[Rfam]
RNA sequence: UAAAUUAAAGGGGAUGGAGCUCCCCAUUGCUUACUGUUUAAAUAACAUUUGAUGGCUCCUAUCUAUUU
Numbered sequence: 001u002a003a004a005u006u007a008a009a010g011g012g013g014a015u016g017g018a019g020c021u022c023c024c025c026a027u028u029g030c031u032u033a034c035u036g037u038u039u040a041a042a043u044a045a046c047a048u049u050u051g052a053u054g055g056c057u058c059c060u061a062u063c064u065a066u067u068u
Stems, first nucleotide, its partner, number of pairs: 010025004016059006
The record is a 68-nucleotide RNA sequence from Halanaerobium praevalens, which matches "Fluoride riboswitch aptamer (crcB RNA motif)" in Rfam. Taxonomically the source falls in Halanaerobium praevalens (Bacteria, Bacillota, Clostridia, Halanaerobiales). The family's consensus secondary structure is taken from published work.